[Rfam]
This 59-nucleotide sequence from Brumimicrobium salinarum belongs to the Rfam family "S15-Flavobacteria ribosomal protein leader". The match comes from Rfam's covariance-model search (64 bits). It is annotated as a cis-regulatory leader.

RNA sequence: UAUCUUUGCAGCUGUGUUUCAAAGCACAUACAUAAAAAUCAUUAAAUAAUAUUGGAAUG
Numbered sequence: 001u002a003u004c005u006u007u008g009c010a011g012c013u014g015u016g017u018u019u020c021a022a023a024g025c026a027c028a029u030a031c032a033u034a035a036a037a038a039u040c041a042u043u044a045a046a047u048a049a050u051a052u053u054g055g056a057a058u059g
Stems, first nucleotide, its partner, number of pairs: 014027005
A reference for the family is Eckert and Weinberg (2020), "Discovery of 20 novel ribosomal leader candidates in bacteria and archaea", BMC Microbiol.
The organism belongs to Brumimicrobium, within Bacteria.
Pairs were carried over by alignment from the consensus structure, which is taken from published work.